[Rfam]
RNA sequence: UAAUAUCUUCGGGGCGAGGUGAAAGUCCUCACCGGCGGUAAAGUCCGCGAGAGUUUUAUACUCCGAUUCGGUGCAAUUCCGAAACCGACAGUAGAGUCUGGAUGAAAGAAGAUUGCU
Numbered sequence: 001u002a003a004u005a006u007c008u009u010c011g012g013g014g015c016g017a018g019g020u021g022a023a024a025g026u027c028c029u030c031a032c033c034g035g036c037g038g039u040a041a042a043g044u045c046c047g048c049g050a051g052a053g054u055u056u057u058a059u060a061c062u063c064c065g066a067u068u069c070g071g072u073g074c075a076a077u078u079c080c081g082a083a084a085c086c087g088a089c090a091g092u093a094g095a096g097u098c099u100g101g102a103u104g105a106a107a108g109a110a111g112a113u114u115g116c117u
Stems, first nucleotide, its partner, number of pairs: 005113006017029003031097002033087002035048004043085002051063003067083005089100003

Background
Shown here is a 117-nucleotide RNA, a member of the family "FMN riboswitch aptamer (RFN element)". A search with the family's covariance model found it, with a score of 115 bits.